[Rfam]
The record is a 131-nucleotide RNA from Marinimicrobium koreense, which matches "Guanidine-I riboswitch aptamer" in Rfam. The match comes from Rfam's covariance-model search (85 bits). Its family is annotated with regulation of gene expression in the Gene Ontology. The organism belongs to Marinimicrobium, within Bacteria.

RNA sequence: UGAAUAGGCCGCUAGGGUUCCGGCGUGAUGACUUGAACAGGUUCAGGUUCGCGUGUCUGGUCCGAGAGCAGCCGACCUUACACGGGAAUUUUCAGUGCAAGGUUACACGGCGGGACAAAAGCCCGGGAGGU
Number, nucleotide and partner (000 for none) at each position: 001u000002g000003a000004a000005u000006a000007g073008g072009c071010c000011g069012c068013u000014a000015g063016g062017g000018u000019u000020c060021c059022g057023g054024c053025g052026u051027g050028a049029u000030g000031a000032c000033u000034u000035g000036a000037a000038c000039a000040g000041g000042u000043u000044c000045a000046g000047g000048u000049u028050c027051g026052c025053g024054u023055g000056u000057c022058u000059g021060g020061u000062c016063c015064g000065a000066g000067a000068g012069c011070a000071g009072c008073c007074g104075a103076c102077c101078u100079u099080a000081c097082a096083c095084g000085g000086g000087a000088a000089u000090u000091u000092u000093c000094a000095g083096u082097g081098c000099a079100a078101g077102g076103u075104u074105a000106c126107a000108c129109g000110g000111c000112g124113g123114g122115a000116c000117a000118a000119a000120a000121g000122c114123c113124c112125g000126g106127g000128a000129g108130g000131u000